[Rfam]
RNA: Betaproteobacteria transfer-messenger RNA
Organism: Rhodocyclus tenuis
RNA sequence: CCCGACGGGCGCACUUGCAAAUCGCCGCUGUUGCCCCCAUCAUCCGGGCAUGGUUGUAAUUCCGGCAAUCUGGAGGCGUUCUGGACGCGGGUUCGAUUCCCGCCACCUCCACCCAAGCGUUUUGAAGGUCUGAGCAGCACGUUUGGGUGGGGGUGCAUUGGUUUCGACAGGGCGGGCGAAGGUGAGCAGGCAACUCGUCAGGCGAUCGACGUUAAUGAAGCAAAUCUACAAACGCCAACGAUGAGCGUUUCGCACUGGCCGCUUAAGGUCUAUGCCGAGGCUGCUUGAGCCUUGUUACCAAAGAAAAGCCGGCGGGGACUUCGGUCCCCGUCGUCA
Numbered sequence: 001c002c003c004g005a006c007g008g009g010c011g012c013a014c015u016u017g018c019a020a021a022u023c024g025c026c027g028c029u030g031u032u033g034c035c036c037c038c039a040u041c042a043u044c045c046g047g048g049c050a051u052g053g054u055u056g057u058a059a060u061u062c063c064g065g066c067a068a069u070c071u072g073g074a075g076g077c078g079u080u081c082u083g084g085a086c087g088c089g090g091g092u093u094c095g096a097u098u099c100c101c102g103c104c105a106c107c108u109c110c111a112c113c114c115a116a117g118c119g120u121u122u123u124g125a126a127g128g129u130c131u132g133a134g135c136a137g138c139a140c141g142u143u144u145g146g147g148u149g150g151g152g153g154u155g156c157a158u159u160g161g162u163u164u165c166g167a168c169a170g171g172g173c174g175g176g177c178g179a180a181g182g183u184g185a186g187c188a189g190g191c192a193a194c195u196c197g198u199c200a201g202g203c204g205a206u207c208g209a210c211g212u213u214a215a216u217g218a219a220g221c222a223a224a225u226c227u228a229c230a231a232a233c234g235c236c237a238a239c240g241a242u243g244a245g246c247g248u249u250u251c252g253c254a255c256u257g258g259c260c261g262c263u264u265a266a267g268g269u270c271u272a273u274g275c276c277g278a279g280g281c282u283g284c285u286u287g288a289g290c291c292u293u294g295u296u297a298c299c300a301a302a303g304a305a306a307a308g309c310c311g312g313c314g315g316g317g318a319c320u321u322c323g324g325u326c327c328c329c330g331u332c333g334u335c336a
Stems, first nucleotide, its partner, number of pairs: 052195005062190002065187002068183004077174007087103005104155010196211004278292004283309004312331008